RNA sequence: ACCGGGAAGAGUCGCGUCUUCCUGUAGGCCAAGUGGCGGUCAUGGAGGGAUGAACGUAACAGUCUGGUGGAGUAACGGUUGGCUGGUUGCCCUGUCGAUGACAGUGUCUUUCAGAGAUUGAUGUCCAACAUUCUGGCUUAAGCGUAAGCAGGGUCAGGAGGUUGUUAAAUACUGGGGAAACGCCCGAGGGUAGAAAUACAGCAGGGAAAACCUGGAGCAUCAAAUCGGCUGGGAGAUGGCACGUCGGAGGGGAUUUAUCAGUCAAUUGCCAUCGCUGGUGGGAACUACCCCUUUU
Numbered sequence: 001a002c003c004g005g006g007a008a009g010a011g012u013c014g015c016g017u018c019u020u021c022c023u024g025u026a027g028g029c030c031a032a033g034u035g036g037c038g039g040u041c042a043u044g045g046a047g048g049g050a051u052g053a054a055c056g057u058a059a060c061a062g063u064c065u066g067g068u069g070g071a072g073u074a075a076c077g078g079u080u081g082g083c084u085g086g087u088u089g090c091c092c093u094g095u096c097g098a099u100g101a102c103a104g105u106g107u108c109u110u111u112c113a114g115a116g117a118u119u120g121a122u123g124u125c126c127a128a129c130a131u132u133c134u135g136g137c138u139u140a141a142g143c144g145u146a147a148g149c150a151g152g153g154u155c156a157g158g159a160g161g162u163u164g165u166u167a168a169a170u171a172c173u174g175g176g177g178a179a180a181c182g183c184c185c186g187a188g189g190g191u192a193g194a195a196a197u198a199c200a201g202c203a204g205g206g207a208a209a210a211c212c213u214g215g216a217g218c219a220u221c222a223a224a225u226c227g228g229c230u231g232g233g234a235g236a237u238g239g240c241a242c243g244u245c246g247g248a249g250g251g252g253a254u255u256u257a258u259c260a261g262u263c264a265a266u267u268g269c270c271a272u273c274g275c276u277g278g279u280g281g282g283a284a285c286u287a288c289c290c291c292u293u294u295u
Stems, first nucleotide, its partner, number of pairs: 001040003004023007028037003044294006051287001053286001057282001060277003065274006076268012090252004095247001099246004104242004108235002111232004116226002118223007126164004131159009142149002165171001172215005183206003190199003
Record summary
The family of this 295-nucleotide sequence from Apophysomyces ossiformis is "Metazoan signal recognition particle RNA". The signal recognition particle (SRP) is a universally conserved ribonucleoprotein. Pairs were carried over by alignment from the consensus structure, which is taken from published work.